[Rfam]
RNA sequence: AUGUGGACUAGAGGAGCGGCUUUUAAGAGUACUUGUCCGGAGUGGCGGGCACAAGGAAGGACAAGGAAAGGAAAAUGCCGCCGAAGCUUGUUGGACAUUCCGAAGGAAAACAGGCUGGUGCCGUACUCGAACAGGGACGGCACUGUCACAGAAGCCACUGCUUUUGUGGAGAGCUAAUCCGCAG
Numbered sequence: 001a002u003g004u005g006g007a008c009u010a011g012a013g014g015a016g017c018g019g020c021u022u023u024u025a026a027g028a029g030u031a032c033u034u035g036u037c038c039g040g041a042g043u044g045g046c047g048g049g050c051a052c053a054a055g056g057a058a059g060g061a062c063a064a065g066g067a068a069a070g071g072a073a074a075a076u077g078c079c080g081c082c083g084a085a086g087c088u089u090g091u092u093g094g095a096c097a098u099u100c101c102g103a104a105g106g107a108a109a110a111c112a113g114g115c116u117g118g119u120g121c122c123g124u125a126c127u128c129g130a131a132c133a134g135g136g137a138c139g140g141c142a143c144u145g146u147c148a149c150a151g152a153a154g155c156c157a158c159u160g161c162u163u164u165u166g167u168g169g170a171g172a173g174c175u176a177a178u179c180c181g182c183a184g
Stems, first nucleotide, its partner, number of pairs: 006179002009176003016081005021075004032065007085116008096105001117144008126135002146169007

The record is a 184-nucleotide RNA from Thermoactinomyces mirandus, which matches "Lysine riboswitch aptamer" in Rfam. Lineage of the source: Bacteria > Bacillota > Bacilli > Thermoactinomycetaceae > Thermoactinomyces.